ASpks TB sRNA: a 78-nucleotide RNA sequence from Streptomyces sp. UH6. The base pairs follow the family's consensus structure, which is taken from published work. The source organism's lineage runs through Bacteria, Actinomycetota, Kitasatosporales, Streptomycetaceae and Streptomyces.

[Rfam]
RNA sequence: CUUGAUCGAGCCGAGCCACAGCGGCCGGCCGUCCUCGGGACGGUCCUGGCCGUAGGUCGUCAGCAGCGCCUGGGCCUC
Numbered sequence: 001c002u003u004g005a006u007c008g009a010g011c012c013g014a015g016c017c018a019c020a021g022c023g024g025c026c027g028g029c030c031g032u033c034c035u036c037g038g039g040a041c042g043g044u045c046c047u048g049g050c051c052g053u054a055g056g057u058c059g060u061c062a063g064c065a066g067c068g069c070c071u072g073g074g075c076c077u078c
Stems, first nucleotide, its partner, number of pairs: 015025003034074003041068002046063003050059001052057001